RNA: Small nucleolar RNA SNORA79
RNA sequence: CGACGUCGGUUCCUCCUCCCGACGGAAGUGUGUCGGGGGGAUUUUACGACGUCGCAGAGUAACGAGUCUGUUUCACCCAGAGAGCUUCGGCACUCCGGCUUCCUGGUUUUGCGAGACUCUACAAAA
Numbered sequence: 001c002g003a004c005g006u007c008g009g010u011u012c013c014u015c016c017u018c019c020c021g022a023c024g025g026a027a028g029u030g031u032g033u034c035g036g037g038g039g040g041a042u043u044u045u046a047c048g049a050c051g052u053c054g055c056a057g058a059g060u061a062a063c064g065a066g067u068c069u070g071u072u073u074c075a076c077c078c079a080g081a082g083a084g085c086u087u088c089g090g091c092a093c094u095c096c097g098g099c100u101u102c103c104u105g106g107u108u109u110u111g112c113g114a115g116a117c118u119c120u121a122c123a124a125a126a
Base pairs, nucleotide, nucleotide: 001054002053003052004051005050006049007048008047014041015040016039017038018037020035021034022033023032065118066117067116068115069114077106078105079104080103082101083100084099085098086097